Source information
Manganese Mn2+ riboswitch aptamer (yybP-ykoY): a 216-nucleotide sequence from Paraburkholderia sp. BL23I1N1.

RNA sequence: CCGUCCCGCAUUGGGGAGUAGCCGCCCCGCGGCAUGUCCGCACCGCUUUCAUACGGGUGCGUCGAACGUGCGGUUCGCGGGGGCGCCUGUCAACAGACUUGGCCUUUAUGGCCAUGGCAGCCGCAGCCUCUGGCCUGGCGAGACCGAUGAUCCACACGCACCGAACAGGGCCCGGCGUGUUGUGGGUCGUCGCUCGUUCAUAUCUCGGCCCGAGGA
Numbered sequence: 001c002c003g004u005c006c007c008g009c010a011u012u013g014g015g016g017a018g019u020a021g022c023c024g025c026c027c028c029g030c031g032g033c034a035u036g037u038c039c040g041c042a043c044c045g046c047u048u049u050c051a052u053a054c055g056g057g058u059g060c061g062u063c064g065a066a067c068g069u070g071c072g073g074u075u076c077g078c079g080g081g082g083g084c085g086c087c088u089g090u091c092a093a094c095a096g097a098c099u100u101g102g103c104c105u106u107u108a109u110g111g112c113c114a115u116g117g118c119a120g121c122c123g124c125a126g127c128c129u130c131u132g133g134c135c136u137g138g139c140g141a142g143a144c145c146g147a148u149g150a151u152c153c154a155c156a157c158g159c160a161c162c163g164a165a166c167a168g169g170g171c172c173c174g175g176c177g178u179g180u181u182g183u184g185g186g187u188c189g190u191c192g193c194u195c196g197u198u199c200a201u202a203u204c205u206c207g208g209c210c211c212g213a214g215g216a
Stems, first nucleotide, its partner, number of pairs: 026081007083124003087120006100114005129215003
This RNA was originally discovered in E. coli during a large scale screen and was named SraF. The family was later found to exist upstream of related families of protein genes in many bacteria, including the the yybP and ykoK genes in B. subtilis. The specific functions of these proteins are unknown, but this structured RNA element may be involved in their genetic regulation as a riboswitch. Rfam 15.1 lists 1,126 matches to the family in 1,062 species.